[Rfam]
RNA sequence: AGUUGGCUUAAUCUCAGCUGGCAACUGUGAGCAGUUAACAACCUCUCACAGUUGUAGCUGGGAUUAUGCUAAAC
Numbered sequence: 001a002g003u004u005g006g007c008u009u010a011a012u013c014u015c016a017g018c019u020g021g022c023a024a025c026u027g028u029g030a031g032c033a034g035u036u037a038a039c040a041a042c043c044u045c046u047c048a049c050a051g052u053u054g055u056a057g058c059u060g061g062g063a064u065u066a067u068g069c070u071a072a073a074c
Stems, first nucleotide, its partner, number of pairs: 003072005009066009021055002023052001026050006
Dot-bracket structure: ..(((((.(((((((((...(((..((((((.............)))))).).))..))))))))).)))))..
RNA: mir-216 microRNA precursor family
Organism: Grallaria varia